[Rfam]
RNA sequence: UAAACGCGAAUUUAUAUGGAAUUGAAACAGUUGUGCAGUAGUGCCACUAGAUGGCGCUGUUUCAAUUCCUUAUAAAUUCGCGUUU
Numbered sequence: 001u002a003a004a005c006g007c008g009a010a011u012u013u014a015u016a017u018g019g020a021a022u023u024g025a026a027a028c029a030g031u032u033g034u035g036c037a038g039u040a041g042u043g044c045c046a047c048u049a050g051a052u053g054g055c056g057c058u059g060u061u062u063c064a065a066u067u068c069c070u071u072a073u074a075a076a077u078u079c080g081c082g083u084u085u
Stems, first nucleotide, its partner, number of pairs: 008079009018069001020067010034053002040048002
mir-2807 microRNA precursor family: an 85-nucleotide RNA sequence from Bicyclus anynana.
The family's consensus secondary structure was predicted with RNAalifold.
Gene Ontology terms of the family: RISC complex and miRNA-mediated post-transcriptional gene silencing.
The source organism's lineage runs through Eukaryota, Endopterygota, Glossata, Satyrinae and Bicyclus.